Rfam assigns this 74-nucleotide sequence from Anser brachyrhynchus to the family "mir-551 microRNA precursor family". The organism belongs to Anser, within Eukaryota. The family's consensus secondary structure was predicted with RNAalifold. Rfam links the family to the GO terms RISC complex and miRNA-mediated post-transcriptional gene silencing. For this family Rfam cites "Conservation of small RNA pathways in platypus" (Murchison et al., Genome Res, 2008).
RNA sequence: CGACCGUGGAAACCAAGCGUCGGUGGAGCCUGUAGGCCUGGCGCGAGGCGACCCAUGCUUGGUUUCCAGGGUCA
Numbered sequence: 001c002g003a004c005c006g007u008g009g010a011a012a013c014c015a016a017g018c019g020u021c022g023g024u025g026g027a028g029c030c031u032g033u034a035g036g037c038c039u040g041g042c043g044c045g046a047g048g049c050g051a052c053c054c055a056u057g058c059u060u061g062g063u064u065u066c067c068a069g070g071g072u073c074a
Base pairs, nucleotide, nucleotide: 002073003072004071005070007068009066010065011064012063013062014061016059017058022053023052024051028049029048030047031046
Dot-bracket structure: .((((.(.((((((.((....(((...((((..............)))).)))....)).)))))).).)))).